[Rfam]
RNA sequence: GAAGACCCUGUUGAGCUUGACUCUAGUCUGGUACUGUAAGAAAACAUGAGAGGUGUAGCAUAAGUGGGAGGUAGUUUUUUUAAACUGCCGACAAUGAAAUACCACUACUUUCAUUGUUUCGUUACUUACUCGGUGAGGCGGAGGGCGUCCGUCGGGGUGAUACCACCUCGGCGUGACGGUAUUCUCGUGCCAAACGCCAAGGGUUGUCGACGUUCGAUCGUACGCCUUGUCGCGUUUAAGAUGUGGAUAUUCCUAAACGGAAUUGAUGCGUCUUAUUCGUUGUGCAAUGGCGGAUUCGGUCGUAUCGUUCGGCAACAUACUCCCUAGCGUGAUCCGAUUCGAGGACACUGCCAGGCGGGGAGUUUGACUGGGGCGGUACAUCUGUCAAAAAAUAACGCAGGUGUCCUAAGGUCAGCUCAGCGAGGACAGAAACCUCGCGUAGAGCAAAAGGGCAAAUGCUGGCUUGAUCCCGAUGCUCAGUGGGCAUAGGGACUGCGAAAGCACGGCCCAUCGAUCCUUUUGGCUUGAAGAGUUUUCAGCAAGAGGUGUCAGAAAAGUUACCACAGGGAUAACUG
Numbered sequence: 001g002a003a004g005a006c007c008c009u010g011u012u013g014a015g016c017u018u019g020a021c022u023c024u025a026g027u028c029u030g031g032u033a034c035u036g037u038a039a040g041a042a043a044a045c046a047u048g049a050g051a052g053g054u055g056u057a058g059c060a061u062a063a064g065u066g067g068g069a070g071g072u073a074g075u076u077u078u079u080u081u082a083a084a085c086u087g088c089c090g091a092c093a094a095u096g097a098a099a100u101a102c103c104a105c106u107a108c109u110u111u112c113a114u115u116g117u118u119u120c121g122u123u124a125c126u127u128a129c130u131c132g133g134u135g136a137g138g139c140g141g142a143g144g145g146c147g148u149c150c151g152u153c154g155g156g157g158u159g160a161u162a163c164c165a166c167c168u169c170g171g172c173g174u175g176a177c178g179g180u181a182u183u184c185u186c187g188u189g190c191c192a193a194a195c196g197c198c199a200a201g202g203g204u205u206g207u208c209g210a211c212g213u214u215c216g217a218u219c220g221u222a223c224g225c226c227u228u229g230u231c232g233c234g235u236u237u238a239a240g241a242u243g244u245g246g247a248u249a250u251u252c253c254u255a256a257a258c259g260g261a262a263u264u265g266a267u268g269c270g271u272c273u274u275a276u277u278c279g280u281u282g283u284g285c286a287a288u289g290g291c292g293g294a295u296u297c298g299g300u301c302g303u304a305u306c307g308u309u310c311g312g313c314a315a316c317a318u319a320c321u322c323c324c325u326a327g328c329g330u331g332a333u334c335c336g337a338u339u340c341g342a343g344g345a346c347a348c349u350g351c352c353a354g355g356c357g358g359g360g361a362g363u364u365u366g367a368c369u370g371g372g373g374c375g376g377u378a379c380a381u382c383u384g385u386c387a388a389a390a391a392a393u394a395a396c397g398c399a400g401g402u403g404u405c406c407u408a409a410g411g412u413c414a415g416c417u418c419a420g421c422g423a424g425g426a427c428a429g430a431a432a433c434c435u436c437g438c439g440u441a442g443a444g445c446a447a448a449a450g451g452g453c454a455a456a457u458g459c460u461g462g463c464u465u466g467a468u469c470c471c472g473a474u475g476c477u478c479a480g481u482g483g484g485c486a487u488a489g490g491g492a493c494u495g496c497g498a499a500a501g502c503a504c505g506g507c508c509c510a511u512c513g514a515u516c517c518u519u520u521u522g523g524c525u526u527g528a529a530g531a532g533u534u535u536u537c538a539g540c541a542a543g544a545g546g547u548g549u550c551a552g553a554a555a556a557g558u559u560a561c562c563a564c565a566g567g568g569a570u571a572a573c574u575g
Stems, first nucleotide, its partner, number of pairs: 007567004012563002014559005020363004027355007036125004042119004046114007063106005070089007129343005139336004147177003194330004366379001367377003380402006405506002411463006417443002420438006444453002468492004473487004494503003517545006525539004
RNA: Eukaryotic large subunit ribosomal RNA, nucleotides 2999 to 3573
Organism: Rhodnius prolixus